Overview
Rfam assigns this 143-nucleotide RNA sequence from Anaerococcus vaginalis to the family "glmS glucosamine-6-phosphate activated ribozyme aptamer". It is annotated as a riboswitch. Gene Ontology terms of the family: regulation of gene expression and catalytic activity. A search with the family's covariance model found it, with a score of 86 bits. Pairs were carried over by alignment from the consensus structure, which is taken from published work.
RNA sequence: AAAAUAUAACAAGCGCCAGAUCCCUUUGGGAUGACGAGGAAUGGAGUUAUCGAAAAUUCGGCGGGUGCUCCAUAGCUUUCACAGGCUCAGUAUUUUACAAAAAUAAGAAGCAAUUCUUAUGACAAAGAAAAUAAAGUGAUACC
Numbered sequence: 001a002a003a004a005u006a007u008a009a010c011a012a013g014c015g016c017c018a019g020a021u022c023c024c025u026u027u028g029g030g031a032u033g034a035c036g037a038g039g040a041a042u043g044g045a046g047u048u049a050u051c052g053a054a055a056a057u058u059c060g061g062c063g064g065g066u067g068c069u070c071c072a073u074a075g076c077u078u079u080c081a082c083a084g085g086c087u088c089a090g091u092a093u094u095u096u097a098c099a100a101a102a103a104u105a106a107g108a109a110g111c112a113a114u115u116c117u118u119a120u121g122a123c124a125a126a127g128a129a130a131a132u133a134a135a136g137u138g139a140u141a142c143c
Base pairs, nucleotide, nucleotide: 020032021031022030023029024028041073042072043071044070045069050061051060052059053058074087075086076085077084078083091133092132093131094130095129096128103120104119105118106117107116108115109114